[Rfam]
Nucleotides: 114
Stems, first nucleotide, its partner, number of pairs: 002019005026067005031058006040049001042047001076088004092107003
Number, partner (000 for none) and nucleotide at each position: 001000u002019g003018c004017g005016g006015g007000a008000a009000c010000a011000u012000c013000g014000u015006u016005c017004c018003g019002c020000a021000a022000g023000c024000a025000g026067g027066c028065u029064g030063g031058c032057g033056g034055u035054u036053u037000c038000g039000u040049c041000u042047g043000g044000a045000a046000a047042c048000g049040g050000g051000c052000g053036g054035g055034g056033u057032u058031g059000a060000a061000g062000c063030c064029c065028a066027g067026c068000g069000u070000c071000a072000a073000a074000g075000g076088c077087c078086c079085u080000g081000u082000a083000a084000c085079a086078g087077g088076g089000g090000g091000a092107g093106c094105g095000a096000c097000a098000g099000u100000g101000c102000g103000g104000c105094c106093g107092u108000a109000g110000c111000g112000u113000g114000a
Group II catalytic intron D1-D4-4: a 114-nucleotide RNA from Acrocarpospora phusangensis. It scores 49 bits against the family's covariance model. About the family: Group II introns are found in rRNA, tRNA and mRNA of organelles in fungi, plants and protists, and also in mRNA in bacteria. The literature on the family includes a 2001 paper in Trends Genet by Bonen and Vogel, "The ins and outs of group II introns".